[Rfam]
RNA sequence: CUGACAUUAUGAAGGCCUGUACUGAAGACAGCAAGCUGUUAGUACAGACCAGAUGCUUUUUGGCAG
Numbered sequence: 001c002u003g004a005c006a007u008u009a010u011g012a013a014g015g016c017c018u019g020u021a022c023u024g025a026a027g028a029c030a031g032c033a034a035g036c037u038g039u040u041a042g043u044a045c046a047g048a049c050c051a052g053a054u055g056c057u058u059u060u061u062g063g064c065a066g
Stems, first nucleotide, its partner, number of pairs: 001066003005062001014050002017047007029038003